[Rfam]
RNA sequence: ACACCAUCCAGAGCGGCUGAGAGACCUGGCUCAGAGACGCCGCAGCAACCCCCCGGAGACGGGCGCGGGUGCUUCCGCCAGGACCGAUGGAGG
Numbered sequence: 001a002c003a004c005c006a007u008c009c010a011g012a013g014c015g016g017c018u019g020a021g022a023g024a025c026c027u028g029g030c031u032c033a034g035a036g037a038c039g040c041c042g043c044a045g046c047a048a049c050c051c052c053c054c055g056g057a058g059a060c061g062g063g064c065g066c067g068g069g070u071g072c073u074u075c076c077g078c079c080a081g082g083a084c085c086g087a088u089g090g091a092g093g
Stems, first nucleotide, its partner, number of pairs: 002092001004090005013043005021032003026081004044073004049069002051065001053063002077085001
RNA: SAM riboswitch aptamer (S box leader)